Shown here is a 111-nucleotide RNA, a member of the family "SAM riboswitch aptamer (S box leader)".

RNA sequence: CUCUUAUCGAGAGAGGUGGAGGGACUGUGCCCUGUGAAACCCAGCAACCGUCAAUGAACGUCAUUGAAAUGGUGCUAAUUCCUGCAAAGCAUGUGCUUUGAGAGAUGAGAG
Numbered sequence: 001c002u003c004u005u006a007u008c009g010a011g012a013g014a015g016g017u018g019g020a021g022g023g024a025c026u027g028u029g030c031c032c033u034g035u036g037a038a039a040c041c042c043a044g045c046a047a048c049c050g051u052c053a054a055u056g057a058a059c060g061u062c063a064u065u066g067a068a069a070u071g072g073u074g075c076u077a078a079u080u081c082c083u084g085c086a087a088a089g090c091a092u093g094u095g096c097u098u099u100g101a102g103a104g105a106u107g108a109g110a111g
Stems, first nucleotide, its partner, number of pairs: 001111008013042001015041003021032003026084002029081001043076004048072002051067005080103001085100006
Its family is annotated with regulation of gene expression in the Gene Ontology.